[Rfam]
RNA sequence: UUUACUUGUUAGUCACCAUAAAAUAUUAUUGAAUAAAACUCUGUUCUUAUCAGCUUAACAUCUGAUACACCUUUCAUCGAAAGGUUCAAAUGUUAAACUAAUUUUUGAAAACUUGGUGGAGAUUUUGGGGCUUGCUCCUGCUCCACCGCGGGUUGACCCGGUAUUGCAGUACCACCGGGAACGGCCCACAUAAU
Numbered sequence: 001u002u003u004a005c006u007u008g009u010u011a012g013u014c015a016c017c018a019u020a021a022a023a024u025a026u027u028a029u030u031g032a033a034u035a036a037a038a039c040u041c042u043g044u045u046c047u048u049a050u051c052a053g054c055u056u057a058a059c060a061u062c063u064g065a066u067a068c069a070c071c072u073u074u075c076a077u078c079g080a081a082a083g084g085u086u087c088a089a090a091u092g093u094u095a096a097a098c099u100a101a102u103u104u105u106u107g108a109a110a111a112c113u114u115g116g117u118g119g120a121g122a123u124u125u126u127g128g129g130g131c132u133u134g135c136u137c138c139u140g141c142u143c144c145a146c147c148g149c150g151g152g153u154u155g156a157c158c159c160g161g162u163a164u165u166g167c168a169g170u171a172c173c174a175c176c177g178g179g180a181a182c183g184g185c186c187c188a189c190a191u192a193a194u
Base pairs, nucleotide, nucleotide: 048067049066050065051064052063053062069085070084071083072082073081074080075079115147116146117145118144119143120142121141127138128137129136130135150187151186152185153184154183155182157179158178159177160176161175162174
RNA: U2 spliceosomal RNA